[Rfam]
RNA: UnaL2 LINE 3' element
RNA sequence: CCUCAGUAAAUAUGUAAAUUGCUCUGGAUAAGAGCAUCUGCUAAAUGACAGUAA
Dot-bracket structure: ............((((...((((((.....))))))..))).)...........